[Rfam]
RNA sequence: GGCUGGUCUGAAGGUAGUGAGUUAUCUCAUUUGAUUGUUCACAGUCAGUUACAGAACUCCUUGUUCUACCGCUUUCCCCCCUUCUCACUGUUGCACUUGAGUAGUCAAAG
Numbered sequence: 001g002g003c004u005g006g007u008c009u010g011a012a013g014g015u016a017g018u019g020a021g022u023u024a025u026c027u028c029a030u031u032u033g034a035u036u037g038u039u040c041a042c043a044g045u046c047a048g049u050u051a052c053a054g055a056a057c058u059c060c061u062u063g064u065u066c067u068a069c070c071g072c073u074u075u076c077c078c079c080c081c082u083u084c085u086c087a088c089u090g091u092u093g094c095a096c097u098u099g100a101g102u103a104g105u106c107a108a109a110g
Stems, first nucleotide, its partner, number of pairs: 001106005007100002010098002014094002016089006044070001047067002

A member of the RNA family "Y RNA" from Microcebus murinus, 110 nucleotides long. On this family, see Teunissen et al., Nucleic Acids Res 2000: "Conserved features of Y RNAs: a comparison of experimentally derived secondary structures". NCBI's taxonomy places the organism under Eukaryota, Metazoa, Boreoeutheria, Lemuriformes, Microcebus. Rfam classes the family as a non-coding RNA gene.